[Rfam]
RNA: Bacteroidales-1 6S-Bacteroidales RNA suggested
Organism: Dysgonomonas sp. PH5-37
RNA sequence: AGUCGUGCUGAUCGAUUGGGAAACUCAUCAGUAAAAGAUUUAUACCGAGACAAGCUCAUCGGUUCUAAUGGCGGGCCACAUCCUUCGGGAUUGCUUAGCGCAGUGGAUUACAAAGGGACCGAGGCACUCAAAUCCUGUCAUAAGGAGUUUCGGCUUAUUCCAUCAGUACGACUUCCUUU
Numbered sequence: 001a002g003u004c005g006u007g008c009u010g011a012u013c014g015a016u017u018g019g020g021a022a023a024c025u026c027a028u029c030a031g032u033a034a035a036a037g038a039u040u041u042a043u044a045c046c047g048a049g050a051c052a053a054g055c056u057c058a059u060c061g062g063u064u065c066u067a068a069u070g071g072c073g074g075g076c077c078a079c080a081u082c083c084u085u086c087g088g089g090a091u092u093g094c095u096u097a098g099c100g101c102a103g104u105g106g107a108u109u110a111c112a113a114a115g116g117g118a119c120c121g122a123g124g125c126a127c128u129c130a131a132a133u134c135c136u137g138u139c140a141u142a143a144g145g146a147g148u149u150u151c152g153g154c155u156u157a158u159u160c161c162a163u164c165a166g167u168a169c170g171a172c173u174u175c176c177u178u179u
Stems, first nucleotide, its partner, number of pairs: 054125003059122008069112002076106004081090003092100003